Source information: Rfam assigns this 171-nucleotide sequence from Sporomusa ovata to the family "Lysine riboswitch aptamer". The source organism's lineage runs through Bacteria, Bacillati, Negativicutes, Sporomusaceae and Sporomusa.
[Rfam]
RNA sequence: GGAUGAAGUAGAGGUGCGGGAGUCAAGAGUACUUUCAGUGAGAGUGGAAUCGAUGAGCUGAAAGAAAAGGGGUAACCGCCGAAGUAAGAAAGAACGCCAAAUCUUCUUACUGGUCUUACAUCAAAUAGAUUUAAGACUGUCACCAGUACUUGGUGGAGUGCUAUCUCAUCU
Dot-bracket structure: .....(.((((....((((..(((.......((((((((.................))))))))......)))..))))...((((((((.(.........).))))))))(((((((.(((.....))).))))))).(((((((...)))))))....)))).).....
Numbered sequence: 001g002g003a004u005g006a007a008g009u010a011g012a013g014g015u016g017c018g019g020g021a022g023u024c025a026a027g028a029g030u031a032c033u034u035u036c037a038g039u040g041a042g043a044g045u046g047g048a049a050u051c052g053a054u055g056a057g058c059u060g061a062a063a064g065a066a067a068a069g070g071g072g073u074a075a076c077c078g079c080c081g082a083a084g085u086a087a088g089a090a091a092g093a094a095c096g097c098c099a100a101a102u103c104u105u106c107u108u109a110c111u112g113g114u115c116u117u118a119c120a121u122c123a124a125a126u127a128g129a130u131u132u133a134a135g136a137c138u139g140u141c142a143c144c145a146g147u148a149c150u151u152g153g154u155g156g157a158g159u160g161c162u163a164u165c166u167c168a169u170c171u
Stems, first nucleotide, its partner, number of pairs: 006166001008164004016079004022073003032064008083111008092102001112138007120130003140156007